[Rfam]
RNA sequence: GAACAUUUUCGCAAACAUUCUUGUGGUGGGACCGCGCAUGGGCAGGAUGGUAUAACCAUCCGGCGACAGCCACCCAUGCGCGAAACGAGGCUCCUGACGGGGCCUUUUUUUAUGCCCUGAA
Number, nucleotide and partner (000 for none) at each position: 001g000002a000003a000004c000005a000006u000007u028008u000009u026010c000011g000012c000013a000014a000015a000016c000017a000018u000019u000020c000021u000022u000023g000024u000025g000026g009027u000028g007029g117030g116031a000032c114033c082034g081035c080036g079037c078038a077039u076040g075041g074042g073043c000044a000045g061046g060047a059048u058049g057050g056051u000052a000053u000054a000055a000056c050057c049058a048059u047060c046061c045062g000063g070064c069065g000066a000067c000068a000069g064070c063071c000072a000073c042074c041075c040076a039077u038078g037079c036080g035081c034082g033083a000084a000085a000086c000087g106088a105089g104090g103091c102092u101093c100094c099095u000096g000097a000098c000099g094100g093101g092102g091103c090104c089105u088106u087107u000108u000109u000110u000111u000112a000113u000114g032115c000116c030117c029118u000119g000120a000121a000
Notes:
Shown here is a 121-nucleotide sequence from Rhizobium sp. RU20A, a member of the family "Rhizobiales sRNA Atu_C8". Rfam classes the family as a small RNA.